[Rfam]
Record summary
A member of the RNA family "Bacterial small signal recognition particle RNA" from Candidatus Methylospira mobilis, 97 nucleotides long.

RNA sequence: AGUGGGUUCCCUCGCAAUGAUACGCUAUGAACCCCGCCAGGCCCGGAAGGGAGCAACGGUAGUAGUGGACUCGUGUGCCGGGGUGUGGCUUUCCCGA
Numbered sequence: 001a002g003u004g005g006g007u008u009c010c011c012u013c014g015c016a017a018u019g020a021u022a023c024g025c026u027a028u029g030a031a032c033c034c035c036g037c038c039a040g041g042c043c044c045g046g047a048a049g050g051g052a053g054c055a056a057c058g059g060u061a062g063u064a065g066u067g068g069a070c071u072c073g074u075g076u077g078c079c080g081g082g083g084u085g086u087g088g089c090u091u092u093c094c095c096g097a
Stems, first nucleotide, its partner, number of pairs: 004091005010083005015075001017074004023067006034059003042051003